[Rfam]
Enterovirus cis-acting replication element: a 61-nucleotide RNA sequence from Enterovirus betacoxsackie. The organism belongs to Enterovirus B, within Viruses. By type it is a cis-regulatory element. For this family Rfam cites "Identification of an RNA hairpin in poliovirus RNA that serves as the primary template in the in vitro uridylylation of VPg" (Paul et al., J Virol, 2000). Gene Ontology term of the family: RNA replication. Rfam's curators put it in the seed alignment. The first step in the replication of the plus-stranded poliovirus RNA is the synthesis of a complementary minus strand. This process is initiated by the covalent attachment of UMP to the terminal protein VPg, yielding VPgpU and VPgpUpU. A small RNA hairpin in the coding region of protein 2C as the site in PV1(M) RNA that is used as the primary template for the in vitro uridylylation.
RNA sequence: GAUGAGCAACUACAUACAGUUCAAGUCCAAAUGCCGUAUUGAACCUGUCUGUCUCUUGCUU
Dot-bracket structure: ............((.((.((((((...(.......)..))))))..)).))..........